The record is a 102-nucleotide RNA sequence from Cohnella zeiphila, which matches "Purine riboswitch aptamer" in Rfam. Riboswitches are metabolite binding domains within certain messenger RNAs that serve as precision sensors for their corresponding targets. Its family is annotated with purine nucleobase biosynthetic process in the Gene Ontology. It scores 76 bits against the family's covariance model.
RNA sequence: ACCGAAAAAAACGAAAUCGCUCGUAUAUCAUCGGGGAUAUGGCCCGGUCGUCUCUACCCGAGAACCUUAAAUUUUCGGACUACGAGUUUUCGGAUUUCGCAG
Dot-bracket structure: ..................(((((((....((((((.......)))))).........(((((((.......)))))))..)))))))...............